[Rfam]
RNA: Archaeal large subunit ribosomal RNA, nucleotides 10 to 578
RNA sequence: AGAGGAAAGGCUUGCGGUGGAUACCUAGGCACCCAGAGACAAGGAAGGGCGUAGCAAGCGACGAAAAUAAGCAUAGAUCCGGAGAUUCCCAAAUAGGUCAACCUUUUAAACUACCUGCUGAAUCCAUGAGCAGGCAAGAGACAACCUGGCGAACUGAAACAUCUUAGUAGCCAGAGGAAAAGAAAGCAAAAGCGAUUCCCGUAGUAGCGGCGAGCGAAAUGGGAGCAGCCUAAACCGUGAAAACGGGGUUGUGGGAGAGCAAUACAAGCGUUGUGCUGCUAGGCGAAGCGGUUGAGUGCCGCACCCUAGAUGGCUAAAGUCCAGUAGCCGAAAGCAUCACUAGCUUACGCUCUGACCCGAGUAGCAUGGGGCACGUGGAAUCCCGUGUGAAUCAGCAAGGACCACCUUGCAAGGCUAAAUACUCCUGGGUGACCGAUAGCGAAGUAGUACCGUGAGGGAAAGGUGAAAAGAACCCCCAGUGGGUAGUGAAAUAGAACGUGAAACCGUGCUGAGCUCCCAAGCAGUGGGAGGGGAAAGUGAUCUCUGACCGCGUGCCUGUUGAAGAAUGA
Numbered sequence: 001a002g003a004g005g006a007a008a009g010g011c012u013u014g015c016g017g018u019g020g021a022u023a024c025c026u027a028g029g030c031a032c033c034c035a036g037a038g039a040c041a042a043g044g045a046a047g048g049g050c051g052u053a054g055c056a057a058g059c060g061a062c063g064a065a066a067a068u069a070a071g072c073a074u075a076g077a078u079c080c081g082g083a084g085a086u087u088c089c090c091a092a093a094u095a096g097g098u099c100a101a102c103c104u105u106u107u108a109a110a111c112u113a114c115c116u117g118c119u120g121a122a123u124c125c126a127u128g129a130g131c132a133g134g135c136a137a138g139a140g141a142c143a144a145c146c147u148g149g150c151g152a153a154c155u156g157a158a159a160c161a162u163c164u165u166a167g168u169a170g171c172c173a174g175a176g177g178a179a180a181a182g183a184a185a186g187c188a189a190a191a192g193c194g195a196u197u198c199c200c201g202u203a204g205u206a207g208c209g210g211c212g213a214g215c216g217a218a219a220u221g222g223g224a225g226c227a228g229c230c231u232a233a234a235c236c237g238u239g240a241a242a243a244c245g246g247g248g249u250u251g252u253g254g255g256a257g258a259g260c261a262a263u264a265c266a267a268g269c270g271u272u273g274u275g276c277u278g279c280u281a282g283g284c285g286a287a288g289c290g291g292u293u294g295a296g297u298g299c300c301g302c303a304c305c306c307u308a309g310a311u312g313g314c315u316a317a318a319g320u321c322c323a324g325u326a327g328c329c330g331a332a333a334g335c336a337u338c339a340c341u342a343g344c345u346u347a348c349g350c351u352c353u354g355a356c357c358c359g360a361g362u363a364g365c366a367u368g369g370g371g372c373a374c375g376u377g378g379a380a381u382c383c384c385g386u387g388u389g390a391a392u393c394a395g396c397a398a399g400g401a402c403c404a405c406c407u408u409g410c411a412a413g414g415c416u417a418a419a420u421a422c423u424c425c426u427g428g429g430u431g432a433c434c435g436a437u438a439g440c441g442a443a444g445u446a447g448u449a450c451c452g453u454g455a456g457g458g459a460a461a462g463g464u465g466a467a468a469a470g471a472a473c474c475c476c477c478a479g480u481g482g483g484u485a486g487u488g489a490a491a492u493a494g495a496a497c498g499u500g501a502a503a504c505c506g507u508g509c510u511g512a513g514c515u516c517c518c519a520a521g522c523a524g525u526g527g528g529a530g531g532g533g534a535a536a537g538u539g540a541u542c543u544c545u546g547a548c549c550g551c552g553u554g555c556c557u558g559u560u561g562a563a564g565a566a567u568g569a
Stems, first nucleotide, its partner, number of pairs: 009515005014507004024463002028434002030431002033428004037423002047090003050063003070078001095104003114138001116136003145176001146174005156163002186193002197224005207215002227416004235246004257352004267345003282329003288302005305309001311323003364388007395410005450457002524551004530545004555568001557566001